[Rfam]
RNA sequence: GGUCAAGAGCGUCAGCGUCCAGCCCCGGCUCGCUGGCCGGCAACCCCCCACGUGCGGGGGGUGCCCCGGGUGAUGACCUGGUCCCGCGAGUGCGCGGGACAACCGCCGAGC
Numbered sequence: 001g002g003u004c005a006a007g008a009g010c011g012u013c014a015g016c017g018u019c020c021a022g023c024c025c026c027g028g029c030u031c032g033c034u035g036g037c038c039g040g041c042a043a044c045c046c047c048c049c050a051c052g053u054g055c056g057g058g059g060g061g062u063g064c065c066c067c068g069g070g071u072g073a074u075g076a077c078c079u080g081g082u083c084c085c086g087c088g089a090g091u092g093c094g095c096g097g098g099a100c101a102a103c104c105g106c107c108g109a110g111c
Stems, first nucleotide, its partner, number of pairs: 001078004009038001011037006021030002039065003044061003048057002081100008
RNA: SAM (S-adenosyl methionine) riboswitch aptamer